The record is a 68-nucleotide RNA sequence, which matches "DUF3800-VIII RNA" in Rfam. It is annotated as a small RNA. It is one of the family's seed sequences. The family's consensus secondary structure is taken from published work. Bacteroidetes, Cyanobacteria, Firmicutes, Planctomycetes (1 example), Proteobacteria, Tenericutes (1 example).
[Rfam]
RNA sequence: ACAGCCCUGCACGUCGCGAAGUCUCAGGUUCCACCUGAGAUAGCAUAGCCUAGCGACGGUGGGUUUUU
Numbered sequence: 001a002c003a004g005c006c007c008u009g010c011a012c013g014u015c016g017c018g019a020a021g022u023c024u025c026a027g028g029u030u031c032c033a034c035c036u037g038a039g040a041u042a043g044c045a046u047a048g049c050c051u052a053g054c055g056a057c058g059g060u061g062g063g064u065u066u067u068u
Stems, first nucleotide, its partner, number of pairs: 001068001003066002006063005012058006021041009
Dot-bracket structure: (.((.(((((.((((((...(((((((((...)))))))))...........))))))))))).)).)